[Rfam]
RNA sequence: CUGCAGGGAUGAUCACACUGAACUCUCUCUUGCUGAUGGGGCAGUGGAGAUGCUUUUUACACAUUUUCUGAGUGGC
Dot-bracket structure: ((((...................................................................)))).